The family of this 84-nucleotide RNA sequence from Ornithorhynchus anatinus is "Small nucleolar RNA SNORD121A". Rfam links the family to the GO terms nucleolus and RNA processing. The family's RNA type in Rfam is C/D-box small nucleolar RNA. Rfam 15.1 lists 881 matches to the family in 444 species.
[Rfam]
RNA sequence: GUCCAGAAGACAAUGAUGUGUGAUUUCCAAGCACAUAUCCGAUUUCUCCAUGUGGAAAUCCAACCUCGACUGAGUUUUCUGGCC
Dot-bracket structure: (.((((.((((..............................................................)))).)))).)

It scores 78 bits against the family's covariance model.